Rfam assigns this 86-nucleotide RNA from Alkaliphilus serpentinus to the family "c-di-GMP-I riboswitch aptamer". The base pairs follow the family's consensus structure, which is taken from published work.
RNA sequence: AUAAAGAAGGGGCAAACCAUUGGAAACAAUGGGACGCAAAGCCAUAGGGCCUUUUAGCUUCAGCUGAAUGGCAGCCGGUUGCCUUU
Numbered sequence: 001a002u003a004a005a006g007a008a009g010g011g012g013c014a015a016a017c018c019a020u021u022g023g024a025a026a027c028a029a030u031g032g033g034a035c036g037c038a039a040a041g042c043c044a045u046a047g048g049g050c051c052u053u054u055u056a057g058c059u060u061c062a063g064c065u066g067a068a069u070g071g072c073a074g075c076c077g078g079u080u081g082c083c084u085u086u
Base pairs, nucleotide, nucleotide: 012037013036017032018031019030020029021028022027040080041079042078043077047076048075049072050071051070055066056065057064058063